[Rfam]
RNA sequence: AACAAUUUGUCCUGCGUCCCACAGCGUUUUAAGAAAGUCCCUAUUUUUGAAAGAAUCUUGAAAACGCCGUGGGACGCGGGACGAAUUGUUAA
Numbered sequence: 001a002a003c004a005a006u007u008u009g010u011c012c013u014g015c016g017u018c019c020c021a022c023a024g025c026g027u028u029u030u031a032a033g034a035a036a037g038u039c040c041c042u043a044u045u046u047u048u049g050a051a052a053g054a055a056u057c058u059u060g061a062a063a064a065c066g067c068c069g070u071g072g073g074a075c076g077c078g079g080g081a082c083g084a085a086u087u088g089u090u091a092a
Stems, first nucleotide, its partner, number of pairs: 001090022024067007032059002035056001
RNA: mir-9261 microRNA precursor family